[Rfam]
RNA sequence: AAGCAACACUCUGUGGCAGACUGUCAAAACCAUCUGACACAAUUUGAGCUUCCUAUAGCAAGGAAGUCUAAACUGCUCCAGAAAUCUCUCUUCUGUUACACAAGCCAUUAUAUUAUACUUAAGCAGU
Numbered sequence: 001a002a003g004c005a006a007c008a009c010u011c012u013g014u015g016g017c018a019g020a021c022u023g024u025c026a027a028a029a030c031c032a033u034c035u036g037a038c039a040c041a042a043u044u045u046g047a048g049c050u051u052c053c054u055a056u057a058g059c060a061a062g063g064a065a066g067u068c069u070a071a072a073c074u075g076c077u078c079c080a081g082a083a084a085u086c087u088c089u090c091u092u093c094u095g096u097u098a099c100a101c102a103a104g105c106c107a108u109u110a111u112a113u114u115a116u117a118c119u120u121a122a123g124c125a126g127u
Base pairs, nucleotide, nucleotide: 009048010047011046012041013040014039015038017036018035019034020033064120065119066118067117069115070114074112075111081105087100089098
This 127-nucleotide RNA sequence from Oryctolagus cuniculus belongs to the Rfam family "Small nucleolar RNA SNORA28".
Lineage of the source: Eukaryota > Sarcopterygii > Amniota > Mammalia > Oryctolagus.
Gene Ontology terms of the family: RNA processing and nucleolus.
Its Rfam clan is "SNORA28 clan".
Rfam's curators write: ACA28 is a member of the H/ACA class of snoRNA that guide the sites of modification of uridines to pseudouridines.
On this family, see Huttenhofer et al., EMBO J 2001: "RNomics: an experimental approach that identifies 201 candidates for novel, small, non-messenger RNAs in mouse".
It is annotated as an H/ACA-box small nucleolar RNA.
The family has 26 seed sequences and 922 matches in Rfam 15.1.